[Rfam]
RNA sequence: CGGACAGGGGGGUCUUCGCCUUCGGGAGGAGCCUGUCCGGCAUGGUUGUGCGUGAUGUGCGUCAGGCGCGACCAGAUGGUUGUCGCUCGGGGGUGAUCGCUG
Numbered sequence: 001c002g003g004a005c006a007g008g009g010g011g012g013u014c015u016u017c018g019c020c021u022u023c024g025g026g027a028g029g030a031g032c033c034u035g036u037c038c039g040g041c042a043u044g045g046u047u048g049u050g051c052g053u054g055a056u057g058u059g060c061g062u063c064a065g066g067c068g069c070g071a072c073c074a075g076a077u078g079g080u081u082g083u084c085g086c087u088c089g090g091g092g093g094u095g096a097u098c099g100c101u102g
Stems, first nucleotide, its partner, number of pairs: 001039008014031004019026002044073008
Rfam assigns this 102-nucleotide sequence from Streptomyces lacrimifluminis to the family "che1 RNA". The family's consensus secondary structure is taken from published work. Taxonomically the source falls in Streptomyces (Bacteria, Bacillati, Actinomycetes, Streptomycetaceae). A search with the family's covariance model found it, with a score of 83 bits.